[Rfam]
RNA sequence: GGUAGUAGCAAAUACUCCAGCGAGGCCCUGGAGGACUGAUGUGGAGAAGGGUUCCGUGUGAACAGCCGUUGCACACGGGUCAGUCGACCCUAAGCCUCAGGAGAAAUCCGUCAAUGGACGCGGGAUGUGUGGCAGACGGCGAGAGCCGGAACUCGCGACCCGUCCGUGUGGCGAAAGGGAAUCCGGUUCCCAUUCCGGAACCCGGUUGCGGAACCGCACUCACGAUCCUCGUAUUGACACGGUAACGUGAAUGACCCCAGAGAUGCCGUCUGGAGCCCCGGGAAGAGUUUUCUUUUCUGUUUGAGCGUUCGGGUUCCAUGGAAUCCUCUAGCAGGGAGAUAUGGAAUGGAGCGCGAAGAGCACCGCAGUUGCUGCGGUGUCCGGGGAGUCCCGUCGGCCCUUGAAAAUCUGGGUGAGGGUCACGUGGAGUCGCCGCACCGGAUCGUACCCAUAUCCGCAGCAGGUCUCCAAGGUCAAGAGCCUCUAGUCGA
Numbered sequence: 001g002g003u004a005g006u007a008g009c010a011a012a013u014a015c016u017c018c019a020g021c022g023a024g025g026c027c028c029u030g031g032a033g034g035a036c037u038g039a040u041g042u043g044g045a046g047a048a049g050g051g052u053u054c055c056g057u058g059u060g061a062a063c064a065g066c067c068g069u070u071g072c073a074c075a076c077g078g079g080u081c082a083g084u085c086g087a088c089c090c091u092a093a094g095c096c097u098c099a100g101g102a103g104a105a106a107u108c109c110g111u112c113a114a115u116g117g118a119c120g121c122g123g124g125a126u127g128u129g130u131g132g133c134a135g136a137c138g139g140c141g142a143g144a145g146c147c148g149g150a151a152c153u154c155g156c157g158a159c160c161c162g163u164c165c166g167u168g169u170g171g172c173g174a175a176a177g178g179g180a181a182u183c184c185g186g187u188u189c190c191c192a193u194u195c196c197g198g199a200a201c202c203c204g205g206u207u208g209c210g211g212a213a214c215c216g217c218a219c220u221c222a223c224g225a226u227c228c229u230c231g232u233a234u235u236g237a238c239a240c241g242g243u244a245a246c247g248u249g250a251a252u253g254a255c256c257c258c259a260g261a262g263a264u265g266c267c268g269u270c271u272g273g274a275g276c277c278c279c280g281g282g283a284a285g286a287g288u289u290u291u292c293u294u295u296u297c298u299g300u301u302u303g304a305g306c307g308u309u310c311g312g313g314u315u316c317c318a319u320g321g322a323a324u325c326c327u328c329u330a331g332c333a334g335g336g337a338g339a340u341a342u343g344g345a346a347u348g349g350a351g352c353g354c355g356a357a358g359a360g361c362a363c364c365g366c367a368g369u370u371g372c373u374g375c376g377g378u379g380u381c382c383g384g385g386g387a388g389u390c391c392c393g394u395c396g397g398c399c400c401u402u403g404a405a406a407a408u409c410u411g412g413g414u415g416a417g418g419g420u421c422a423c424g425u426g427g428a429g430u431c432g433c434c435g436c437a438c439c440g441g442a443u444c445g446u447a448c449c450c451a452u453a454u455c456c457g458c459a460g461c462a463g464g465u466c467u468c469c470a471a472g473g474u475c476a477a478g479a480g481c482c483u484c485u486a487g488u489c490g491a
Stems, first nucleotide, its partner, number of pairs: 015033006034489004043469004049449002054078006063071002085445003089178002094172002098110001100109003116165005182199005202441004221249004256413006265398004270393001272391003276388001278384003281301002284298003305354005315345006324336004361379007455464002471483004
The family of this 491-nucleotide part of an RNA from Cloeon dipterum is "Eukaryotic large subunit ribosomal RNA".